Rfam assigns this 102-nucleotide RNA from Bacillus safensis to the family "TPP riboswitch aptamer (THI element)". The source organism's lineage runs through Bacteria, Bacillati, Caryophanales, Bacillaceae and Bacillus. Gene Ontology term of the family: thiamine pyrophosphate binding. A search with the family's covariance model found it, with a score of 62 bits.

RNA sequence: AAUAACCGCAGGGGGAGCUUUGUGCUGAGAGUGAACAUUCGUUGUUCUGACCCUUUGAACCUGUCAGUUAAUACUGAAGUAGGAAUGUGGAAUCACUUGAAU
Numbered sequence: 001a002a003u004a005a006c007c008g009c010a011g012g013g014g015g016a017g018c019u020u021u022g023u024g025c026u027g028a029g030a031g032u033g034a035a036c037a038u039u040c041g042u043u044g045u046u047c048u049g050a051c052c053c054u055u056u057g058a059a060c061c062u063g064u065c066a067g068u069u070a071a072u073a074c075u076g077a078a079g080u081a082g083g084a085a086u087g088u089g090g091a092a093u094c095a096c097u098u099g100a101a102u
Stems, first nucleotide, its partner, number of pairs: 006090005011054004016048001017025002033047004060083004064077004